[Rfam]
RNA sequence: UUCUCAGUUCUGGGGGUCAUGGUAGAAGCGUUCACGUCGCGACCCCUGUCAGAGAUCUAACCAAUCCCUGCGAAUUCUACC
Numbered sequence: 001u002u003c004u005c006a007g008u009u010c011u012g013g014g015g016g017u018c019a020u021g022g023u024a025g026a027a028g029c030g031u032u033c034a035c036g037u038c039g040c041g042a043c044c045c046c047u048g049u050c051a052g053a054g055a056u057c058u059a060a061c062c063a064a065u066c067c068c069u070g071c072g073a074a075u076u077c078u079a080c081c
Stems, first nucleotide, its partner, number of pairs: 013046006021081007028040003050070003054066003